[Rfam]
RNA sequence: AUCGCCAUCUUACUGGGCAGCAUUGGAUGGUGUUGGUGUUCUAAUACUGCCUGGUAAUGAUGACGGC
Numbered sequence: 001a002u003c004g005c006c007a008u009c010u011u012a013c014u015g016g017g018c019a020g021c022a023u024u025g026g027a028u029g030g031u032g033u034u035g036g037u038g039u040u041c042u043a044a045u046a047c048u049g050c051c052u053g054g055u056a057a058u059g060a061u062g063a064c065g066g067c
Stems, first nucleotide, its partner, number of pairs: 002066003006062004010057011022045006

A member of the RNA family "mir-8/mir-141/mir-200 microRNA precursor family" from Chrysochloris asiatica, 67 nucleotides long. The family is grouped with related families in Rfam's "mir-8 microRNA precursor clan". Lineage of the source: Eukaryota > Deuterostomia > Gnathostomata > Theria > Chrysochloris. The literature on the family includes a 2001 paper in Science by Lagos-Quintana et al., "Identification of novel genes coding for small expressed RNAs". A search with the family's covariance model found it, with a score of 70 bits.